[Rfam]
RNA sequence: AUAUGCACUGAGUGGCCAGAUUGUGAUGAUCUUUGAACACAUCAUAAUCUGGCCACUCAGUGUACUU
Numbered sequence: 001a002u003a004u005g006c007a008c009u010g011a012g013u014g015g016c017c018a019g020a021u022u023g024u025g026a027u028g029a030u031c032u033u034u035g036a037a038c039a040c041a042u043c044a045u046a047a048u049c050u051g052g053c054c055a056c057u058c059a060g061u062g063u064a065c066u067u
Stems, first nucleotide, its partner, number of pairs: 004064014019049010
This 67-nucleotide RNA sequence from Pipistrellus kuhlii belongs to the Rfam family "mir-9256 microRNA precursor family". Lineage of the source: Eukaryota > Eumetazoa > Amniota > Vespertilionidae > Pipistrellus. A search with the family's covariance model found it, with a score of 80 bits. Gene Ontology terms of the family: RISC complex and miRNA-mediated post-transcriptional gene silencing.